[Rfam]
RNA sequence: CUAGUUACACAAGCGCCAGAGCUUGAAGUUGCGCGGGAAGGAUUUUGAUCGGUACGAAUCUUGAAGCAUAAGAGACUACUGAGCAGGAUCGACGGCAAUCAAGCUGACGAGGUGGAGGUGUUCGGAUUGUUCGGCGGGGACCUCCCGGUGAUGCACCAGAGCCGUAAACCGGAUUGCGGAAAAUGGAUGGGUGACUGUCCACACAACGUGCCGGUAGGUGCAA
Numbered sequence: 001c002u003a004g005u006u007a008c009a010c011a012a013g014c015g016c017c018a019g020a021g022c023u024u025g026a027a028g029u030u031g032c033g034c035g036g037g038a039a040g041g042a043u044u045u046u047g048a049u050c051g052g053u054a055c056g057a058a059u060c061u062u063g064a065a066g067c068a069u070a071a072g073a074g075a076c077u078a079c080u081g082a083g084c085a086g087g088a089u090c091g092a093c094g095g096c097a098a099u100c101a102a103g104c105u106g107a108c109g110a111g112g113u114g115g116a117g118g119u120g121u122u123c124g125g126a127u128u129g130u131u132c133g134g135c136g137g138g139g140a141c142c143u144c145c146c147g148g149u150g151a152u153g154c155a156c157c158a159g160a161g162c163c164g165u166a167a168a169c170c171g172g173a174u175u176g177c178g179g180a181a182a183a184u185g186g187a188u189g190g191g192u193g194a195c196u197g198u199c200c201a202c203a204c205a206a207c208g209u210g211c212c213g214g215u216a217g218g219u220g221c222a223a
Stems, first nucleotide, its partner, number of pairs: 020105007114145005122134004146164004150157001170213003175208002184201007
Rfam assigns this 223-nucleotide RNA sequence from Paenibacillus xylanivorans to the family "glmS glucosamine-6-phosphate activated ribozyme aptamer".
A reference for the family is Hampel and Tinsley (2006), "Evidence for preorganization of the glmS ribozyme ligand binding pocket", Biochemistry.
The organism belongs to Paenibacillus, within Bacteria.